[Rfam]
RNA sequence: GCCUUUUUAGCUCAGUGGUAGAGCAUUGUAUUUGUAAUGCGGUGGUCGUCGGUUCGAAUCCGACAAAAGGCU
Dot-bracket structure: (((((((..((((.......)))).(((((.......))))).....(((((.......)))))))))))).